[Rfam]
Nucleotides: 060
Stems, first nucleotide, its partner, number of pairs: 010025004016051006032041003
Number, partner (000 for none) and nucleotide at each position: 001000a002000a003000u004000g005000u006000a007000a008000a009000g010025g011024g012023c013022g014000a015000u016051g017050g018049a019048g020047u021046u022013c023012g024011c025010c026000a027000g028000a029000u030000g031000u032041g033040c034039u035000a036000c037000u038000a039034g040033g041032c042000u043000a044000a045000u046021g047020a048019c049018u050017c051016c052000u053000a054000c055000c056000g057000g058000a059000a060000a
The record is a 60-nucleotide RNA sequence from Heyndrickxia sporothermodurans, which matches "Fluoride riboswitch aptamer (crcB RNA motif)" in Rfam. Its family is annotated with response to fluoride and positive regulation of gene expression in the Gene Ontology. The source organism's lineage runs through Bacteria, Bacillota, Bacilli, Caryophanales and Heyndrickxia. The family's consensus secondary structure is taken from published work.